[Rfam]
RNA sequence: AUGCCUUAAACUUCCAAGUAAGAAAAAGAACAAUUUGGGUGAUAACCUGAAUCCACACUGCUAACGUGAGAUGAGAUGAAUUUCUGAAUGGGUAAAGGUUGCCCCUAAGUGACCUGCCUGUUUUGCAGGAUUCCUGGGAGUCAGGAUCUGCCUG
Numbered sequence: 001a002u003g004c005c006u007u008a009a010a011c012u013u014c015c016a017a018g019u020a021a022g023a024a025a026a027a028g029a030a031c032a033a034u035u036u037g038g039g040u041g042a043u044a045a046c047c048u049g050a051a052u053c054c055a056c057a058c059u060g061c062u063a064a065c066g067u068g069a070g071a072u073g074a075g076a077u078g079a080a081u082u083u084c085u086g087a088a089u090g091g092g093u094a095a096a097g098g099u100u101g102c103c104c105c106u107a108a109g110u111g112a113c114c115u116g117c118c119u120g121u122u123u124u125g126c127a128g129g130a131u132u133c134c135u136g137g138g139a140g141u142c143a144g145g146a147u148c149u150g151c152c153u154g
Stems, first nucleotide, its partner, number of pairs: 005022004033052007054075001056073002089154005096149005104138002107135001109133001111131001113129005
U12 minor spliceosomal RNA: a 154-nucleotide sequence from Suricata suricatta. Rfam links the family to the GO terms pre-mRNA branch point binding, mRNA branch site recognition and U12 snRNP. It scores 75 bits against the family's covariance model.